[Rfam]
Rfam assigns this 154-nucleotide RNA from Nocardioides panaciterrulae to the family "c-di-AMP riboswitch aptamer (ydaO/yuaA leader)". Lineage of the source: Bacteria > Actinomycetes > Propionibacteriales > Nocardioidaceae > Nocardioides. A search with the family's covariance model found it, with a score of 52 bits.
RNA sequence: GUCCCCUGAACACCGGGACAGGAGCGGGGAACCCACCUUCGAGUCGCGCACCGCGCGGCCCUCGGGGUGAAGCCGUCCGAUCUCCGGACCGGACGGCCGGGCACACCUCAGCCCGAACCCGACAGCUAACCCCGAAGGCGUGUGGAGGGUUUCC
Dot-bracket structure: .(((................))).(((((....(.............................)(((.....(((((((..........)))))))..((((........))))...))).........)))))....................
Overview
Its family is annotated with regulation of gene expression and cyclic-di-AMP binding in the Gene Ontology. A reference for the family is Barrick et al. (2004), "New RNA motifs suggest an expanded scope for riboswitches in bacterial genetic control", Proc Natl Acad Sci U S A.